Rfam assigns this 288-nucleotide RNA sequence from Streptomyces sp. PTY087I2 to the family "Streptomyces sRNA 4677". On this family, see Hindra et al., PLoS One 2014: "Complex intra-operonic dynamics mediated by a small RNA in Streptomyces coelicolor".
[Rfam]
RNA sequence: CGUCGUGGUGGCCCACGACGUAAAAGCUUUUAAGUACUUGUCUUUGAUCACUGGAGAAAUAACCCAACCCAACCCCCCCUCGUGGACCUCUGCGGGGCCCGGUCAGCUCGGGGGAGGCGCGAUCACUCACAUGGGUGAAGUGUGCCAACCGGGCUGGAUUUAUGACCUGUUGGCGGGCAUAUGCUCACGCUGAACACCACCCCAGACACCCCAGACAUUGAGACGGCCCCCGGCCGGGACUGGCAUCCCGACCGAAGGCCUCACCACCAAGGAAGAGACCACUUCCCG
Numbered sequence: 001c002g003u004c005g006u007g008g009u010g011g012c013c014c015a016c017g018a019c020g021u022a023a024a025a026g027c028u029u030u031u032a033a034g035u036a037c038u039u040g041u042c043u044u045u046g047a048u049c050a051c052u053g054g055a056g057a058a059a060u061a062a063c064c065c066a067a068c069c070c071a072a073c074c075c076c077c078c079c080u081c082g083u084g085g086a087c088c089u090c091u092g093c094g095g096g097g098c099c100c101g102g103u104c105a106g107c108u109c110g111g112g113g114g115a116g117g118c119g120c121g122a123u124c125a126c127u128c129a130c131a132u133g134g135g136u137g138a139a140g141u142g143u144g145c146c147a148a149c150c151g152g153g154c155u156g157g158a159u160u161u162a163u164g165a166c167c168u169g170u171u172g173g174c175g176g177g178c179a180u181a182u183g184c185u186c187a188c189g190c191u192g193a194a195c196a197c198c199a200c201c202c203c204a205g206a207c208a209c210c211c212c213a214g215a216c217a218u219u220g221a222g223a224c225g226g227c228c229c230c231c232g233g234c235c236g237g238g239a240c241u242g243g244c245a246u247c248c249c250g251a252c253c254g255a256a257g258g259c260c261u262c263a264c265c266a267c268c269a270a271g272g273a274a275g276a277g278a279c280c281a282c283u284u285c286c287c288g
Stems, first nucleotide, its partner, number of pairs: 007268004016110003020107001123138006153190002155187003225260004231254003236249004271286005
Annotation:
Rfam classes the family as a small RNA. It scores 86 bits against the family's covariance model. Rfam describes the family as follows. Located in the intergenic region between anti-sigma factor SCO4677 gene and a putative regulatory protein gene SCO4676. scr4677 expression requires the SCO4677 activity and scr4677 sRNA itself seem to affect the levels of the SCO4676-associated transcripts. NCBI's taxonomy places the organism under Bacteria, Bacillati, Actinomycetota, Actinomycetes, Streptomyces.